Rfam assigns this 73-nucleotide RNA from Artemisia annua to the family "small nucleolar RNA snoR117". The family's RNA type in Rfam is C/D-box small nucleolar RNA. Lineage of the source: Eukaryota > Embryophyta > Tracheophyta > Artemisiinae > Artemisia. The match comes from Rfam's covariance-model search (51 bits).
RNA sequence: UGCCAGUGAUGAGUGAUGUCUUGUCCGUACCAUCUGAUACAUGAUUAGUAUUUGCAUCCAAUUUCUGAGGCAU
Number, nucleotide and partner (000 for none) at each position: 001u072002g071003c070004c069005a000006g000007u000008g000009a000010u000011g000012a000013g000014u000015g000016a000017u000018g000019u000020c000021u000022u000023g000024u000025c000026c000027g000028u000029a000030c000031c000032a000033u000034c000035u000036g000037a000038u000039a000040c000041a000042u000043g000044a000045u000046u000047a000048g000049u000050a000051u000052u000053u000054g000055c000056a000057u000058c000059c000060a000061a000062u000063u000064u000065c000066u000067g000068a000069g004070g003071c002072a001073u000